RNA sequence: UGGAGUGUGACAAUGGUGUUUGUAUCAUCUGUCGUCAAACGCCAUUAUCACACUA
Numbered sequence: 001u002g003g004a005g006u007g008u009g010a011c012a013a014u015g016g017u018g019u020u021u022g023u024a025u026c027a028u029c030u031g032u033c034g035u036c037a038a039a040c041g042c043c044a045u046u047a048u049c050a051c052a053c054u055a
Stems, first nucleotide, its partner, number of pairs: 004054007012046011

The record is a 55-nucleotide RNA from Ictalurus punctatus, which matches "mir-122 microRNA precursor family" in Rfam.
Pairs were carried over by alignment from the consensus structure, which was predicted with RNAalifold.
Rfam's curators put it in the seed alignment.